[Rfam]
RNA sequence: GGUGCUUUUAUGUUCACCGAAAUCGAACAUAC
Numbered sequence: 001g002g003u004g005c006u007u008u009u010a011u012g013u014u015c016a017c018c019g020a021a022a023u024c025g026a027a028c029a030u031a032c
Stems, first nucleotide, its partner, number of pairs: 001018004009031006

This 32-nucleotide RNA sequence from Pomovirus solibetae belongs to the Rfam family "Pseudoknot of upstream pseudoknot domain (UPD) of the 3'UTR". The organism belongs to Pomovirus solibetae, within Viruses. Rfam classes the family as a cis-regulatory element. The base pairs follow the family's consensus structure, which is taken from published work. The literature on the family includes a 1999 paper in Arch Virol by Koenig et al., "Molecular characterization of a new furovirus mainly infecting rye".